[Rfam]
RNA sequence: AAUACCUCAAUCACUCGUUUUUUAUUUUCUUUUUUACACCUCAUUUCCGGAGGCGGCCCUGACGUGUAAAAACGAAAGUGAAAAUUGCCAAGCCUCCCACCCGGGAGGCUUUUUUGUC
Numbered sequence: 001a002a003u004a005c006c007u008c009a010a011u012c013a014c015u016c017g018u019u020u021u022u023u024a025u026u027u028u029c030u031u032u033u034u035u036a037c038a039c040c041u042c043a044u045u046u047c048c049g050g051a052g053g054c055g056g057c058c059c060u061g062a063c064g065u066g067u068a069a070a071a072a073c074g075a076a077a078g079u080g081a082a083a084a085u086u087g088c089c090a091a092g093c094c095u096c097c098c099a100c101c102c103g104g105g106a107g108g109c110u111u112u113u114u115u116g117u118c
Base pairs, nucleotide, nucleotide: 019084020083021082022081023080024079025078026077027076028075029074031072032071034069035068036067037066041050052063054061055060090111091110092109093108094107095106096105097104098103